A member of the RNA family "Group I catalytic intron" from Trichoglossum hirsutum, 315 nucleotides long.
[Rfam]
Nucleotides: 315
Stems, first nucleotide, its partner, number of pairs: 001019005066249005072243002077186006087177003187229002192224004200217005233295001235294005251281005257275002301312004
Number, partner (000 for none) and nucleotide at each position: 001019c002018c003017a004016u005015u006000c007000u008000g009000c010000u011000a012000u013000u014000a015005g016004g017003u018002g019001g020000u021000u022000a023000a024000g025000a026000g027000g028000c029000g030000g031000a032000u033000a034000a035000a036000a037000g038000g039000u040000c041000c042000g043000u044000c045000u046000a047000g048000u049000c050000c051000u052000u053000g054000u055000u056000c057000a058000c059000a060000g061000g062000g063000c064000g065000a066249c067248a068247c069246u070245g071000u072243c073242a074000a075000a076000u077186u078185g079184c080183g081182g082181g083000g084000a085000c086000a087177c088176c089175c090000u091000u092000a093000g094000a095000g096000c097000u098000c099000a100000a101000a102000c103000a104000a105000c106000c107000g108000c109000a110000g111000c112000c113000u114000a115000a116000c117000u118000g119000a120000a121000a122000g123000g124000u125000g126000g127000g128000u129000g130000c131000g132000c133000a134000c135000c136000a137000g138000g139000g140000u141000a142000a143000u144000g145000a146000c147000c148000u149000c150000g151000g152000g153000g154000a155000u156000g157000g158000u159000a160000a161000u162000a163000u164000u165000g166000u167000u168000u169000g170000a171000g172000a173000u174000u175089g176088g177087g178000u179000a180000a181082u182081c183080u184079g185078c186077a187229g188228c189000a190000a191000a192224g193223u194222c195221c196000u197000a198000c199000a200217g201216g202215u203214c204213a205000u206000u207000u208000u209000u210000a211000a212000a213204u214203g215202a216201u217200c218000c219000a220000a221195g222194g223193a224192u225000g226000a227000a228188g229187u230000u231000c232000a233295c234000a235294g236293a237292c238291u239290a240000g241000a242073u243072g244000g245070c246069a247068g248067u249066g250000g251281g252280u253279g254278a255277g256000a257275g258274g259000a260000c261000a262000a263000c264000u265000a266000u267000a268000a269000g270000u271000g272000u273000g274258u275257c276000c277255c278254u279253u280252g281251c282000u283000u284000a285000a286000g287000g288000u289000a290239u291238a292237g293236u294235c295233g296000a297000g298000c299000c300000a301312c302311c303310g304309g305000g306000a307000g308000a309304c310303c311302g312301g313000g314000c315000g
The family's consensus secondary structure is taken from published work.